The family of this 161-nucleotide RNA sequence from Streptomyces populi is "c-di-AMP riboswitch aptamer (ydaO/yuaA leader)". The pairing is the family consensus, mapped onto this sequence. Lineage of the source: Bacteria > Actinomycetota > Actinomycetes > Streptomycetaceae > Streptomyces. It scores 60 bits against the family's covariance model.
RNA sequence: GUAACCCAUCGACCCACGCACGGCAGGAGCGGGGGAACCACAGGUAAGCCGCCGAUCCGGACGCACCGGACCGGCUAGGGGUGAAGCCGUGCCCACAGCACGGCCGGGCAUCUCCCGCCCGAACCCGACAGCUCACCUCGCAGGCGUCGGAGAGGAAAUUC
Numbered sequence: 001g002u003a004a005c006c007c008a009u010c011g012a013c014c015c016a017c018g019c020a021c022g023g024c025a026g027g028a029g030c031g032g033g034g035g036a037a038c039c040a041c042a043g044g045u046a047a048g049c050c051g052c053c054g055a056u057c058c059g060g061a062c063g064c065a066c067c068g069g070a071c072c073g074g075c076u077a078g079g080g081g082u083g084a085a086g087c088c089g090u091g092c093c094c095a096c097a098g099c100a101c102g103g104c105c106g107g108g109c110a111u112c113u114c115c116c117g118c119c120c121g122a123a124c125c126c127g128a129c130a131g132c133u134c135a136c137c138u139c140g141c142a143g144g145c146g147u148c149g150g151a152g153a154g155g156a157a158a159u160u161c
Base pairs, nucleotide, nucleotide: 005027006026029141030140031139032138033137034136039078079126080125081124087103088102089101090100106120107119108118109117